Shown here is a 92-nucleotide RNA sequence from Mycobacterium tuberculosis, a member of the family "Bacterial small signal recognition particle RNA". Taxonomically the source falls in Mycobacterium tuberculosis (Bacteria, Bacillati, Actinomycetota, Mycobacterium).

RNA sequence: GGACCCCGCGCGGCGUCUAUCCUGUGAACUCCCCCAGGGCUGGAAGGCAGCAAGGGUCAACGGGCUCUGUCGGGUGCGCGGGGUCCCCUUCA
Numbered sequence: 001g002g003a004c005c006c007c008g009c010g011c012g013g014c015g016u017c018u019a020u021c022c023u024g025u026g027a028a029c030u031c032c033c034c035c036a037g038g039g040c041u042g043g044a045a046g047g048c049a050g051c052a053a054g055g056g057u058c059a060a061c062g063g064g065c066u067c068u069g070u071c072g073g074g075u076g077c078g079c080g081g082g083g084u085c086c087c088c089u090u091c092a
Base pairs, nucleotide, nucleotide: 001086002085003084004083005082006081007080008079009078010077011074014072015071017069021064022063023062024061025060031056032055033054039048040047041046

Annotation: Rfam's curators write: The signal recognition particle (SRP) is a universally conserved ribonucleoprotein involved in the co-translational targeting of proteins to membranes. It is annotated as a non-coding RNA gene.